[Rfam]
RNA sequence: UAGCAGGGACGACCCUGCCUUUUAAAUCAUAAAUUGAGGACGACCUUA
Numbered sequence: 001u002a003g004c005a006g007g008g009a010c011g012a013c014c015c016u017g018c019c020u021u022u023u024a025a026a027u028c029a030u031a032a033a034u035u036g037a038g039g040a041c042g043a044c045c046u047u048a
Stems, first nucleotide, its partner, number of pairs: 003018006035048005
The family of this 48-nucleotide RNA sequence from Candidatus Nitrotoga sp. AM1P is "Guanidine-II riboswitch aptamer (mini-ykkC)". Simpler in structure and has fewer highly conserved nucleotide positions than the ykkC-yxkD leader. Despite this each of its two stem-loop structures directly bind free guanidine. Therefore, mini-ykkC RNA motif represents a distinct class of guanidine-sensing RNAs. Its crystal structure was also determined. The family has 72 seed sequences and 1,589 matches in Rfam 15.1. Gene Ontology term of the family: regulation of gene expression. The match comes from Rfam's covariance-model search (39 bits). The organism belongs to Candidatus Nitrotoga, within Bacteria.